[Rfam]
RNA sequence: AGUGUAGAAAAGGCAAGAUGUUGGCAUAGCUGUUGUUGCCAAAAAACCAGCUGUACCUACAUAUUGCCAUUUGUCCACUUG
Numbered sequence: 001a002g003u004g005u006a007g008a009a010a011a012g013g014c015a016a017g018a019u020g021u022u023g024g025c026a027u028a029g030c031u032g033u034u035g036u037u038g039c040c041a042a043a044a045a046a047c048c049a050g051c052u053g054u055a056c057c058u059a060c061a062u063a064u065u066g067c068c069a070u071u072u073g074u075c076c077a078c079u080u081g
Base pairs, nucleotide, nucleotide: 004076006074008072009071010070012068013067014066015065016064018062019061020060023057024056026054027053028052029051030050

Shown here is an 81-nucleotide sequence from Patiria miniata, a member of the family "mir-31 microRNA precursor family". NCBI's taxonomy places the organism under Eukaryota, Opisthokonta, Bilateria, Asterozoa, Patiria.